[Rfam]
RNA sequence: CUGUGCCUUAUGAUGGCUAGAUCUUAAAUCCCAGACGGAUCAAGCUUGAUGUCUUCACAG
Dot-bracket structure: (((((.........((((.(((((.....(...)..))))).)))).........)))))